[Rfam]
RNA: Archaeal large subunit ribosomal RNA, nucleotides 10 to 552
RNA sequence: AUACAGACGGUAAUAGGUGGAUUGCUAGGCUUGAGAAGAGAUGAAGGACGUGGCAAGCUGCGAUAAGCUCGGGGUAGGCGCACGCAUCCUAUGAUCCCGAGAUGUCCGAAUGAGAAUCUUACACAUUUGUGUAUUCCAGUACAUUAGUAUUGGAAGUCGAACCGUGGGAAUUGAAGCAUCUUAGUACCACGAGGAAAAGAAAUCAAUAGAGAUUUCCCAAGUAGAGGCGAUCGAAAAGGAAAGAGCCCAAACUGAAUCCUUCGGGAGAUGUGGUGUUUUGGUAUGAUAAUAUGGAAUCUUAAAGCACAGCUGAAAUGAUCUGGAAAGUUCUGGAAUAGAGGGUGAUACCCCCGUAAGCGAAGUGUGGAGAGUCCUAUUCAUACCCGAGUAGUUGUCCUUGGUAGUGGGCAAUGAAUAUGGGUGAAAGUAGCAUCCGAGGCUAAAUAUUUCUCAAGACCGAUAGUGGACUAGUACCGUGAGGGAAAGCUGAAAAGUACCCCGGAAGGGGGGCGAAAAGUGCAUGAAACCUAUUACUUACAGACG
Number, nucleotide and partner (000 for none) at each position: 001a000002u000003a000004c000005a000006g000007a000008c000009g535010g534011u533012a532013a531014u530015a529016g528017g527018u000019g000020g000021a000022u000023u521024g487025c486026u000027a000028g458029g457030c455031u454032u453033g452034a451035g450036a448037a447038g000039a000040g000041a000042u000043g000044a000045a000046g107047g106048a105049c062050g061051u060052g000053g000054c000055a000056a000057g000058c000059u000060g051061c050062g049063a000064u000065a000066a000067g000068c101069u100070c099071g098072g097073g096074g000075u000076a000077g089078g088079c000080g000081c000082a000083c000084g000085c000086a000087u000088c078089c077090u000091a000092u000093g000094a000095u000096c073097c072098c071099g070100a069101g068102a000103u000104g000105u048106c047107c046108g000109a000110a000111u000112g120113a119114g118115a000116a000117u000118c114119u113120u112121a000122c000123a000124c000125a000126u000127u000128u000129g000130u000131g000132u000133a000134u155135u154136c153137c152138a151139g150140u149141a148142c147143a000144u000145u000146a000147g142148u141149a140150u139151u138152g137153g136154a135155a134156g000157u000158c000159g000160a000161a000162c193163c191164g190165u189166g188167g187168g000169a000170a000171u000172u000173g180174a179175a000176g000177c000178a000179u174180c173181u000182u000183a000184g000185u000186a000187c167188c166189a165190c164191g163192a000193g162194g000195a000196a000197a000198a000199g000200a000201a000202a000203u210204c209205a000206a000207u000208a000209g204210a203211g000212a000213u000214u241215u240216c239217c238218c000219a000220a000221g000222u000223a000224g232225a231226g000227g000228c000229g000230a000231u225232c224233g000234a000235a000236a000237a000238g217239g216240a215241a214242a000243g000244a441245g440246c439247c438248c000249a000250a000251a000252c273253u272254g271255a000256a000257u000258c000259c000260u000261u000262c000263g000264g000265g000266a000267g000268a000269u000270g000271u254272g253273g252274u000275g000276u000277u000278u000279u000280g000281g000282u000283a000284u000285g378286a377287u376288a000289a000290u000291a000292u000293g374294g373295a372296a000297u000298c000299u000300u000301a000302a000303a000304g000305c000306a000307c000308a000309g358310c357311u356312g000313a000314a000315a331316u000317g330318a329319u000320c327321u000322g000323g000324a000325a000326a000327g320328u000329u318330c317331u315332g000333g000334a000335a000336u000337a000338g000339a000340g352341g351342g350343u000344g000345a000346u000347a000348c000349c000350c342351c341352c340353g000354u000355a000356a311357g310358c309359g000360a000361a000362g000363u000364g000365u000366g000367g000368a000369g000370a000371g000372u295373c294374c293375u000376a287377u286378u285379c000380a000381u000382a000383c000384c000385c000386g000387a000388g000389u000390a000391g412392u411393u410394g409395u408396c407397c406398u000399u000400g000401g000402u000403a000404g000405u000406g397407g396408g395409c394410a393411a392412u391413g000414a000415a000416u000417a000418u000419g435420g434421g433422u432423g431424a000425a000426a000427g000428u000429a000430g000431c423432a422433u421434c420435c419436g000437a000438g247439g246440c245441u244442a000443a000444a000445u000446a000447u037448u036449u000450c035451u034452c033453a032454a031455g030456a000457c029458c028459g000460a000461u000462a000463g000464u000465g000466g000467a000468c000469u000470a000471g000472u000473a000474c481475c480476g000477u000478g000479a000480g475481g474482g000483a000484a000485a000486g025487c024488u000489g000490a000491a000492a000493a000494g000495u000496a000497c000498c000499c000500c000501g000502g000503a000504a000505g000506g000507g000508g000509g000510g000511c000512g000513a000514a000515a000516a000517g000518u000519g000520c000521a023522u000523g000524a000525a000526a000527c017528c016529u015530a014531u013532u012533a011534c010535u009536u000537a000538c000539a000540g000541a000542c000543g000